[Rfam]
RNA sequence: AUUCCCUCAAUGUGUUGCCUCUUUUGAUAACCACUCUCUGUUCUUAUUAGCCUAUUAUGUGAUAUGGAUUCUAUUUGUAUCCAAGAUAAUAAACUUAUUUUUGCAAUGCGGAGCAAAGCUUGAAGCUUGCUUCAACUCCGCCGCGGGUUGGCCCGGUAUUGCACUAUGUCCGGGAUUGGCCCACUCUUC
Numbered sequence: 001a002u003u004c005c006c007u008c009a010a011u012g013u014g015u016u017g018c019c020u021c022u023u024u025u026g027a028u029a030a031c032c033a034c035u036c037u038c039u040g041u042u043c044u045u046a047u048u049a050g051c052c053u054a055u056u057a058u059g060u061g062a063u064a065u066g067g068a069u070u071c072u073a074u075u076u077g078u079a080u081c082c083a084a085g086a087u088a089a090u091a092a093a094c095u096u097a098u099u100u101u102u103g104c105a106a107u108g109c110g111g112a113g114c115a116a117a118g119c120u121u122g123a124a125g126c127u128u129g130c131u132u133c134a135a136c137u138c139c140g141c142c143g144c145g146g147g148u149u150g151g152c153c154c155g156g157u158a159u160u161g162c163a164c165u166a167u168g169u170c171c172g173g174g175a176u177u178g179g180c181c182c183a184c185u186c187u188u189c
Base pairs, nucleotide, nucleotide: 007027008026009025012021014019045064046063047062048061049060066082067081068080069079071077110142111141113139115137122133123132124131125130145182146181147180148179149178150177152174153173154172155171156170

The family of this 189-nucleotide RNA sequence from Rhipicephalus microplus is "U2 spliceosomal RNA".
The family has 208 seed sequences and 71,512 matches in Rfam 15.1.
The family's consensus secondary structure is taken from published work.
Rfam classes the family as a spliceosomal small nuclear RNA.